[Rfam]
RNA sequence: CUGGAAACAACAUCCUGAUGCUGUCUGGGUGUGGAAAAGCAGAACUCCAGCAUCAGUGAUUUUGUUGCUGG
Numbered sequence: 001c002u003g004g005a006a007a008c009a010a011c012a013u014c015c016u017g018a019u020g021c022u023g024u025c026u027g028g029g030u031g032u033g034g035a036a037a038a039g040c041a042g043a044a045c046u047c048c049a050g051c052a053u054c055a056g057u058g059a060u061u062u063u064g065u066u067g068c069u070g071g
Base pairs, nucleotide, nucleotide: 006066007065008064009063010062012060013059014058015056016055017054018053019052020051021050022049023048